[Rfam]
RNA sequence: CCUCGGCGCCCCCUCUCCCAACCCUUGUACCAGAGCAUAAACUGAACCCCUGGUACGGGGCCGUGGGAGAGGGGGAGCCGGGG
Numbered sequence: 001c002c003u004c005g006g007c008g009c010c011c012c013c014u015c016u017c018c019c020a021a022c023c024c025u026u027g028u029a030c031c032a033g034a035g036c037a038u039a040a041a042c043u044g045a046a047c048c049c050c051u052g053g054u055a056c057g058g059g060g061c062c063g064u065g066g067g068a069g070a071g072g073g074g075g076a077g078c079c080g081g082g083g
Stems, first nucleotide, its partner, number of pairs: 010074003014070002016067003022059002026057007